The family of this 98-nucleotide sequence from Cellulomonas flavigena is "SAM riboswitch aptamer (S box leader)". NCBI's taxonomy places the organism under Bacteria, Bacillati, Actinomycetes, Cellulomonadaceae, Cellulomonas flavigena. For this family Rfam cites "An mRNA structure that controls gene expression by binding S-adenosylmethionine" (Winkler et al., Nat Struct Biol, 2003). A search with the family's covariance model found it, with a score of 53 bits.

RNA sequence: CGACCAUCCAGAGCGGCCGAGAGAUCUGGCUCGACGACGCCGCAGCAACCCGCACGGGAGACCGUGGCCGAGGGUGCUACCGCCAGAGACGAUGGGAG
Numbered sequence: 001c002g003a004c005c006a007u008c009c010a011g012a013g014c015g016g017c018c019g020a021g022a023g024a025u026c027u028g029g030c031u032c033g034a035c036g037a038c039g040c041c042g043c044a045g046c047a048a049c050c051c052g053c054a055c056g057g058g059a060g061a062c063c064g065u066g067g068c069c070g071a072g073g074g075u076g077c078u079a080c081c082g083c084c085a086g087a088g089a090c091g092a093u094g095g096g097a098g
Stems, first nucleotide, its partner, number of pairs: 001098001004095005013043005021032003026086004044078004049074002051070002082090001